RNA sequence: CGCUCAUCCAGAGGGGCAGAGGGAUCGGCCCGACGAAGCCCCGGCAACCGGCGUCAGCCACGUCAUUCGCGACCGCGAUAACGGCGACGAUCACGGUGCCAAUUCCGACCCGCACGCGGGACAGAUGAGGA
Numbered sequence: 001c002g003c004u005c006a007u008c009c010a011g012a013g014g015g016g017c018a019g020a021g022g023g024a025u026c027g028g029c030c031c032g033a034c035g036a037a038g039c040c041c042c043g044g045c046a047a048c049c050g051g052c053g054u055c056a057g058c059c060a061c062g063u064c065a066u067u068c069g070c071g072a073c074c075g076c077g078a079u080a081a082c083g084g085c086g087a088c089g090a091u092c093a094c095g096g097u098g099c100c101a102a103u104u105c106c107g108a109c110c111c112g113c114a115c116g117c118g119g120g121a122c123a124g125a126u127g128a129g130g131a
Base pairs, nucleotide, nucleotide: 003129004128005127006126007125008124013042014041015040016039017038021031022030023029025108026107027106028105043100044099045098046097048096049095050092051091104123109120110119111118112117
RNA: SAM riboswitch aptamer (S box leader)
Organism: Actinophytocola algeriensis